RNA: Plastid-ccsA-ndhD-1 3UTR RNA
RNA sequence: AACCGCCGAGAACCUUUUGAAUCACUCCACUACUUGAUUCAAAAGGUUCUCACAAACG
Numbered sequence: 001a002a003c004c005g006c007c008g009a010g011a012a013c014c015u016u017u018u019g020a021a022u023c024a025c026u027c028c029a030c031u032a033c034u035u036g037a038u039u040c041a042a043a044a045g046g047u048u049c050u051c052a053c054a055a056a057c058g
Base pairs, nucleotide, nucleotide: 008051009050010049011048012047013046014045015044016043017042018041019040020039021038022037023036024035